About this RNA:
The record is a 58-nucleotide RNA from Latilactobacillus sakei, which matches "Ribosomal protein L13 leader" in Rfam. Rfam's curators put it in the seed alignment. By type it is a cis-regulatory leader. From the family's description: This family is a putative r-protein leader autoregulatory structure found in B. subtilis and other low-GC Gram-positive bacteria. The source organism's lineage runs through Bacteria, Bacillota, Bacilli, Lactobacillaceae and Latilactobacillus sakei subsp. sakei.
[Rfam]
RNA sequence: GGUAUUGUUUGCCCCACGAUAGGCCCCGGAAACUUAUUGAGUGUCAAACAAACACAGA
Numbered sequence: 001g002g003u004a005u006u007g008u009u010u011g012c013c014c015c016a017c018g019a020u021a022g023g024c025c026c027c028g029g030a031a032a033c034u035u036a037u038u039g040a041g042u043g044u045c046a047a048a049c050a051a052a053c054a055c056a057g058a
Stems, first nucleotide, its partner, number of pairs: 006054006015041001017039007